[Rfam]
RNA sequence: UCCUGGUCUCCACCGCCGGGAAAACUGAAGAGGCACACCAUCAUUGCCUGAAGUGCGGCGGGUCCAAGCCCUCCAAUCCAUGGCAGACUUUACCCGGCAACGGCGCGUAGCGCUUGCAGCCGGUCAUCGUCGCGUCUCGCAAGGGACCGCUGCGGCAGCCUUCUCGGCGG
Numbered sequence: 001u002c003c004u005g006g007u008c009u010c011c012a013c014c015g016c017c018g019g020g021a022a023a024a025c026u027g028a029a030g031a032g033g034c035a036c037a038c039c040a041u042c043a044u045u046g047c048c049u050g051a052a053g054u055g056c057g058g059c060g061g062g063u064c065c066a067a068g069c070c071c072u073c074c075a076a077u078c079c080a081u082g083g084c085a086g087a088c089u090u091u092a093c094c095c096g097g098c099a100a101c102g103g104c105g106c107g108u109a110g111c112g113c114u115u116g117c118a119g120c121c122g123g124u125c126a127u128c129g130u131c132g133c134g135u136c137u138c139g140c141a142a143g144g145g146a147c148c149g150c151u152g153c154g155g156c157a158g159c160c161u162u163c164u165c166g167g168c169g170g
Stems, first nucleotide, its partner, number of pairs: 001021007032048004055150003082094002102136005

A member of the RNA family "speF leader" from Aurantimonas coralicida, 170 nucleotides long. For this family Rfam cites "A survey of sRNA families in alpha-proteobacteria" (del Val et al., RNA Biol, 2012). The source organism's lineage runs through Bacteria, Pseudomonadota, Aurantimonadaceae, Aurantimonas and Aurantimonas coralicida. This family is a putative regulatory RNA structure that is found upstream of the speF gene encoding ornithine decarboxylase in Agrobacterium tumefaciens and other alpha-proteobacteria. The family's RNA type in Rfam is cis-regulatory leader.